Rfam assigns this 76-nucleotide sequence from Crocosphaera subtropica to the family "Glutamine riboswitch aptamer (glnA leader)". On this family, see Ren et al., Cell Rep 2015: "Structural and Dynamic Basis for Low-Affinity, High-Selectivity Binding of L-Glutamine by the Glutamine Riboswitch".

RNA sequence: AUCGUUCAUCCUUUCCAGCAGACAUUCAUCAACAAUGGAGGGACGGAAGUAAGGAUUUUUCCUGAAGGAACGCGCC
Numbered sequence: 001a002u003c004g005u006u007c008a009u010c011c012u013u014u015c016c017a018g019c020a021g022a023c024a025u026u027c028a029u030c031a032a033c034a035a036u037g038g039a040g041g042g043a044c045g046g047a048a049g050u051a052a053g054g055a056u057u058u059u060u061c062c063u064g065a066a067g068g069a070a071c072g073c074g075c076c
Base pairs, nucleotide, nucleotide: 003072004071005070006069007068009043010042011041012040013039014038015037046073052063053062054061
The sequence is in the family's curated seed alignment.
Gene Ontology term of the family: glutamine binding.